[Rfam]
RNA sequence: GGGGAUGUAACUCAAAUGGUAGAGCGCUUGCUUAGCAUGCAAGAGGUACGGGGAUCGAUACCCCGCAUCUCCA
Numbered sequence: 001g002g003g004g005a006u007g008u009a010a011c012u013c014a015a016a017u018g019g020u021a022g023a024g025c026g027c028u029u030g031c032u033u034a035g036c037a038u039g040c041a042a043g044a045g046g047u048a049c050g051g052g053g054a055u056c057g058a059u060a061c062c063c064c065g066c067a068u069c070u071c072c073a
Stems, first nucleotide, its partner, number of pairs: 001072007011024003027043005049065005
RNA: tRNA